A member of the RNA family "ASpks TB sRNA" from Gordonia amarae, 75 nucleotides long. It scores 82 bits against the family's covariance model.
RNA sequence: CUUCACCGAUCCCAACCGCAAUGGGCGGUCCGCCGGGCGGCCCUGACCGUAAGUGGCUAGCAACGCCUGCGCCUC
Numbered sequence: 001c002u003u004c005a006c007c008g009a010u011c012c013c014a015a016c017c018g019c020a021a022u023g024g025g026c027g028g029u030c031c032g033c034c035g036g037g038c039g040g041c042c043c044u045g046a047c048c049g050u051a052a053g054u055g056g057c058u059a060g061c062a063a064c065g066c067c068u069g070c071g072c073c074u075c
Stems, first nucleotide, its partner, number of pairs: 016024002031071003038065002043060003047056003

The base pairs follow the family's consensus structure, which is taken from published work. The family has 77 seed sequences and 9,052 matches in Rfam 15.1. A reference for the family is Arnvig and Young (2009), "Identification of small RNAs in Mycobacterium tuberculosis", Mol Microbiol.